[Rfam]
The family of this 68-nucleotide RNA sequence is "DUF3800-IX RNA". Actinobacteria, Firmicutes (1 example), Nitrospirae, Proteobacteria, Verrucomicrobia (1 example).
RNA sequence: GCCAUCACCCUGAACUGUCGCAAUCCAAUGCGCGCGUUCUCUUUAUUGAGAUAGGGGUGGUGGUUUUU
Numbered sequence: 001g002c003c004a005u006c007a008c009c010c011u012g013a014a015c016u017g018u019c020g021c022a023a024u025c026c027a028a029u030g031c032g033c034g035c036g037u038u039c040u041c042u043u044u045a046u047u048g049a050g051a052u053a054g055g056g057g058u059g060g061u062g063g064u065u066u067u068u
Stems, first nucleotide, its partner, number of pairs: 001064011016036003019032004038051004